[Rfam]
RNA sequence: AUUAAAUAGUUGAUAUAUAUUCGUAUAACCUCGUAAUAUGGGCGAGGGUAUCUACAGAGGACCGUAAAUUUCUGGCUACGAGAGAACGUUGUUUCUAA
Numbered sequence: 001a002u003u004a005a006a007u008a009g010u011u012g013a014u015a016u017a018u019a020u021u022c023g024u025a026u027a028a029c030c031u032c033g034u035a036a037u038a039u040g041g042g043c044g045a046g047g048g049u050a051u052c053u054a055c056a057g058a059g060g061a062c063c064g065u066a067a068a069u070u071u072c073u074g075g076c077u078a079c080g081a082g083a084g085a086a087c088g089u090u091g092u093u094u095c096u097a098a
Stems, first nucleotide, its partner, number of pairs: 018084001020082006029047006055074005061069001
RNA: Purine riboswitch aptamer